[Rfam]
RNA sequence: AUCGUUAGCUAGAGCAGUUGGCUUUUAAUCAAUGGGUCGCAGGUUCGAGCCGAGCGAAGCGAGACGACAACGCGCAGCGUUGCCCGGAGGGCGAGGCCAGAGACCGAGUCAAUCCUGCACGACCCACCA
Numbered sequence: 001a002u003c004g005u006u007a008g009c010u011a012g013a014g015c016a017g018u019u020g021g022c023u024u025u026u027a028a029u030c031a032a033u034g035g036g037u038c039g040c041a042g043g044u045u046c047g048a049g050c051c052g053a054g055c056g057a058a059g060c061g062a063g064a065c066g067a068c069a070a071c072g073c074g075c076a077g078c079g080u081u082g083c084c085c086g087g088a089g090g091g092c093g094a095g096g097c098c099a100g101a102g103a104c105c106g107a108g109u110c111a112a113u114c115c116u117g118c119a120c121g122a123c124c125c126a127c128c129a
Base pairs, nucleotide, nucleotide: 017118018117020115021114023112033093034092037091038090044088045087046086047085051061052060068082069081070080071079072078073077